[Rfam]
Nucleotides: 057
Stems, first nucleotide, its partner, number of pairs: 005057012021042001023040006
Number, partner (000 for none) and nucleotide at each position: 001000a002000a003000u004000g005057a006056a007055a008054g009053g010052a011051g012050c013049a014048a015047u016046a017000c018000c019000a020000a021042a022000u023040u024039c025038c026037u027036u028035g029000u030000u031000c032000u033000a034000u035028c036027a037026a038025g039024g040023g041000g042021u043000u044000g045000g046016u047015a048014u049013u050012g051011c052010u053009c054008c055007u056006u057005u